This 73-nucleotide sequence from Sporormia fimetaria belongs to the Rfam family "bZIP non canonical Hac1/Xbp1 intron". The match comes from Rfam's covariance-model search (49 bits). Rfam classes the family as a small RNA. The literature on the family includes a 2011 paper in RNA Biol by Hooks and Griffiths-Jones, "Conserved RNA structures in the non-canonical Hac1/Xbp1 intron". The family has 112 seed sequences and 1,325 matches in Rfam 15.1. From the family's description: bZIP intron RNA is a non-canonical intron that was first reported in HAC1 gene in yeast and XBP1 gene in Metazoa.

[Rfam]
RNA sequence: ACGCUCGAGCUCGACCAGACACAAUAUCCUGCAGCGAUAUUGUGCGACCUGCUGUGUCGGUCGAGCCGAGCGU
Numbered sequence: 001a002c003g004c005u006c007g008a009g010c011u012c013g014a015c016c017a018g019a020c021a022c023a024a025u026a027u028c029c030u031g032c033a034g035c036g037a038u039a040u041u042g043u044g045c046g047a048c049c050u051g052c053u054g055u056g057u058c059g060g061u062c063g064a065g066c067c068g069a070g071c072g073u
Base pairs, nucleotide, nucleotide: 001073002072003071004070005069006068007067012063013062014061015060016059023041024040025039026038027037028036046058047057048056